[Rfam]
RNA sequence: CAAGUGCUCUGGCUCUGCCGCUGGUAUCAACUGAUACGAGAGGAAAGUCCGGGCAACACAGGACACUCCACUUCUGAAAGUAGAAGCUAUUGGUGACAGUAGGUGUCGGUAGAAGAAAAUAACCGCUCACUGGCAACAGGGAGUAAGGGUGAGAAGGUGGUGUAAGAGACCACCAGCUAACGGGCGAUCGUUAGGCUGUGCCAUCUGGAGGUUGCAAAUUCGCGUAAACCAUUGACGGAGAGUUGUCCGCUCGAACACUCGGUAGACUGGGAGCGUCAUGCUACAGUAGACCGCUUGUGGCAAUGGAGGGUAGAAUGCUGGAGUUGGAGGGUGACCUUCAAUGUAGAUAAAUGGUGGAGCACCAGUGCAAACUUGGUGACAGAACCCGGCUUAUAGGAGCACUUGAUUU
Dot-bracket structure: (((((((((((.(((((((.((.(((((....))))).))....[[[.[[[[[((((........((((((((((......)))))(.((((....)))).)(.....(((...........((((((.(((....))).))))..)).......((((((.......)))))).((((((((....))))))).)..)))...))))))))))...((((.......(((((....................................................................)))))......))))......((((((((....))))))))..........))))))).........................]]]]]]]].).))))))))))....
The record is a 409-nucleotide RNA from Hoylesella timonensis, which matches "Bacterial RNase P class A" in Rfam. By type it is a ribozyme. The match comes from Rfam's covariance-model search (188 bits).